[Rfam]
Annotation: A member of the RNA family "Bacteriophage Diversity-Generating Retroelement RNA", 132 nucleotides long. The family's consensus secondary structure is taken from published work. A reference for the family is Handa et al. (2025), "RNA control of reverse transcription in a diversity-generating retroelement", Nature. Rfam classes the family as a small RNA.

RNA sequence: GCUUUGCACUUACCAUAUGGCGGUGCAGGCCGAUCACUACUUAGGGUGGUCAGCUUAGUUGUCCUGCUUAGGCGAACACACAUCUGGGUUUGGCAUAACGUCGAGUAGCCUUGAGCAAAAGACGGAGCCAGC
Number, nucleotide and partner (000 for none) at each position: 001g030002c029003u000004u028005u027006g026007c025008a024009c023010u022011u000012a000013c020014c019015a000016u000017a000018u000019g014020g013021c000022g010023g009024u008025g007026c006027a005028g004029g002030c001031c000032g000033a000034u000035c000036a000037c000038u000039a000040c000041u000042u000043a000044g000045g000046g000047u000048g000049g000050u000051c000052a000053g000054c000055u000056u000057a000058g000059u000060u000061g000062u000063c000064c000065u074066g073067c072068u000069u000070a000071g000072g067073c066074g065075a000076a000077c000078a000079c000080a000081c000082a000083u000084c000085u000086g000087g000088g132089u000090u131091u130092g129093g128094c127095a000096u000097a000098a000099c124100g123101u122102c121103g000104a000105g000106u000107a000108g116109c115110c000111u000112u000113g000114a000115g109116c108117a000118a000119a000120a000121g102122a101123c100124g099125g000126a000127g094128c093129c092130a091131g090132c088